The record is a 276-nucleotide RNA sequence from Geomicrobium halophilum, which matches "BsrG" in Rfam.
Rfam classes the family as a small RNA.
Its family is annotated with autolysis and toxin activity in the Gene Ontology.
Lineage of the source: Bacteria > Bacillota > Bacilli > Caryophanales > Geomicrobium.
The match comes from Rfam's covariance-model search (62 bits).
bsrE, bsrG and bsrH pair through intermolecular interactions with antisense sRNAs. They form type I toxin/antitoxin system that includes an mRNA encoding for a short, toxic peptide (bsrE, bsrG and bsrH) and an antitoxin that is comprised of an antisense RNA. bsrG encodes a 39-amino-acid toxin, and the 180 nucleotide antisense sRNA called SR4 acts as the antitoxin (they overlap by 123 nucleotides).
For this family Rfam cites "In Vitro Characterization of the Type I Toxin-Antitoxin System bsrE/SR5 from Bacillus subtilis" (Meissner et al., J Biol Chem, 2016).

RNA sequence: ACAACAGAACAACGUUCUCAAGGGCGGUCGUUCGCUUUCCUUCGUCCGGUUCAUACGGACAGAAGGGAGGUGAGGCUAUGACGGUGUUUGAAGCUUUGCUGUUAUGUGCAACGGUUUCUACGCUCGUCUAUUUCAUUGGUCGAGAUAAAGACAGUGGAACUAAAUAAAACCGCCCUUGAGAUGUCCAAAACCAAAGGGCGGCUUCUUGUAAUUUAGCGAACAAGCCCUUGAAGGACUCGUUCUGUUGUUAGACCGUGGAUGUUGGUAGCAUUCACG
Numbered sequence: 001a002c003a004a005c006a007g008a009a010c011a012a013c014g015u016u017c018u019c020a021a022g023g024g025c026g027g028u029c030g031u032u033c034g035c036u037u038u039c040c041u042u043c044g045u046c047c048g049g050u051u052c053a054u055a056c057g058g059a060c061a062g063a064a065g066g067g068a069g070g071u072g073a074g075g076c077u078a079u080g081a082c083g084g085u086g087u088u089u090g091a092a093g094c095u096u097u098g099c100u101g102u103u104a105u106g107u108g109c110a111a112c113g114g115u116u117u118c119u120a121c122g123c124u125c126g127u128c129u130a131u132u133u134c135a136u137u138g139g140u141c142g143a144g145a146u147a148a149a150g151a152c153a154g155u156g157g158a159a160c161u162a163a164a165u166a167a168a169a170c171c172g173c174c175c176u177u178g179a180g181a182u183g184u185c186c187a188a189a190a191c192c193a194a195a196g197g198g199c200g201g202c203u204u205c206u207u208g209u210a211a212u213u214u215a216g217c218g219a220a221c222a223a224g225c226c227c228u229u230g231a232a233g234g235a236c237u238c239g240u241u242c243u244g245u246u247g248u249u250a251g252a253c254c255g256u257g258g259a260u261g262u263u264g265g266u267a268g269c270a271u272u273c274a275c276g
Stems, first nucleotide, its partner, number of pairs: 001248005007242003014221003017180008026170001028168001032073003036070007080140001082138005093109002190209002223237002226234001254276010